[Rfam]
RNA sequence: GUCAGCACCCCGCACUAAAGUGACGGGGCUAUGCGGGGAGCGCAGGCUAUUCGCUUCGCGAAGGCUUCGCCAACGCCAAUAUGCCUCCGACUUUAGGUAGCUGACCAGUCUAAGCGCAAGCUACGUUCGGAUUAAGAGUUAAAGUUCAUACCUUGGGUUACGAUGCUAGACCCAAGCUCUAUAACCAAAAAGUUAAACAUUCUUACGAGGGGUAAGAAAGUGCUUUUUGGAAAGUACCGAAUCCGAACAUUGACGAAGCGAACGUUAC
Numbered sequence: 001g002u003c004a005g006c007a008c009c010c011c012g013c014a015c016u017a018a019a020g021u022g023a024c025g026g027g028g029c030u031a032u033g034c035g036g037g038g039a040g041c042g043c044a045g046g047c048u049a050u051u052c053g054c055u056u057c058g059c060g061a062a063g064g065c066u067u068c069g070c071c072a073a074c075g076c077c078a079a080u081a082u083g084c085c086u087c088c089g090a091c092u093u094u095a096g097g098u099a100g101c102u103g104a105c106c107a108g109u110c111u112a113a114g115c116g117c118a119a120g121c122u123a124c125g126u127u128c129g130g131a132u133u134a135a136g137a138g139u140u141a142a143a144g145u146u147c148a149u150a151c152c153u154u155g156g157g158u159u160a161c162g163a164u165g166c167u168a169g170a171c172c173c174a175a176g177c178u179c180u181a182u183a184a185c186c187a188a189a190a191a192g193u194u195a196a197a198c199a200u201u202c203u204u205a206c207g208a209g210g211g212g213u214a215a216g217a218a219a220g221u222g223c224u225u226u227u228u229g230g231a232a233a234g235u236a237c238c239g240a241a242u243c244c245g246a247a248c249a250u251u252g253a254c255g256a257a258g259c260g261a262a263c264g265u266u267a268c
Stems, first nucleotide, its partner, number of pairs: 001105006007098001009028002011025002014021002108254003112250001113122003125248009148182002152176008164260004185230009197221002200218007

The record is a 268-nucleotide sequence from Crinalium epipsammum, which matches "HNH endonuclease-associated RNA and ORF (HEARO) RNA" in Rfam. Rfam classes the family as a non-coding RNA gene. It scores 139 bits against the family's covariance model. Pairs were carried over by alignment from the consensus structure, which is taken from published work. The organism belongs to Crinalium epipsammum, within Bacteria.